[Rfam]
RNA sequence: ACCCCGUCUGCUCAAACCCACACACGUGUCGACACGAUGACCUGGGUGCCCCGCAUUCUCGAAGUUCUUGUUCAGGUGCGUGGGUUGGUCAUUGGGAUACGUGGAGGCCCAAC
Dot-bracket structure: ......................((((((((....((((((((.....((((..............................)))).)))))))).))))))))..........
Numbered sequence: 001a002c003c004c005c006g007u008c009u010g011c012u013c014a015a016a017c018c019c020a021c022a023c024a025c026g027u028g029u030c031g032a033c034a035c036g037a038u039g040a041c042c043u044g045g046g047u048g049c050c051c052c053g054c055a056u057u058c059u060c061g062a063a064g065u066u067c068u069u070g071u072u073c074a075g076g077u078g079c080g081u082g083g084g085u086u087g088g089u090c091a092u093u094g095g096g097a098u099a100c101g102u103g104g105a106g107g108c109c110c111a112a113c
Stems, first nucleotide, its partner, number of pairs: 023103008035094008048085004